[Rfam]
Description
A member of the RNA family "Lysine riboswitch aptamer" from Alkalicoccus halolimnae, 173 nucleotides long. The source organism's lineage runs through Bacteria, Bacillati, Bacillota, Caryophanales and Alkalicoccus. From the family's description: Riboswitches are metabolite binding domains within certain messenger RNAs that serve as precision sensors for their corresponding targets. The family's consensus secondary structure is taken from published work.
RNA sequence: GAAUGAGGUAGAGGAGCGGGAACAAUCAUUAACGUAUCAGAGCCGGACGGAGGCAGAGACGAUGCGUGAAAGGUGUUAUCGCCGAAGCCCUGUAAGCUCGUCUGCUUACAGGAGCUGGGGCUUCAUCGAACAGGUGAAGCACUGUCGCGUAUCUGCGGAGAGCUGCCGGCAUG
Numbered sequence: 001g002a003a004u005g006a007g008g009u010a011g012a013g014g015a016g017c018g019g020g021a022a023c024a025a026u027c028a029u030u031a032a033c034g035u036a037u038c039a040g041a042g043c044c045g046g047a048c049g050g051a052g053g054c055a056g057a058g059a060c061g062a063u064g065c066g067u068g069a070a071a072g073g074u075g076u077u078a079u080c081g082c083c084g085a086a087g088c089c090c091u092g093u094a095a096g097c098u099c100g101u102c103u104g105c106u107u108a109c110a111g112g113a114g115c116u117g118g119g120g121c122u123u124c125a126u127c128g129a130a131c132a133g134g135u136g137a138a139g140c141a142c143u144g145u146c147g148c149g150u151a152u153c154u155g156c157g158g159a160g161a162g163c164u165g166c167c168g169g170c171a172u173g
Base pairs, nucleotide, nucleotide: 007167008166009165010164011163016082017081018080019079021077022076023075024074032067033066034065035064036063037062038061086116087115088114089112090111091110092109093108094107095106096105117143118142120140121139122138123137124136125135126134127133145158146157147156148155149154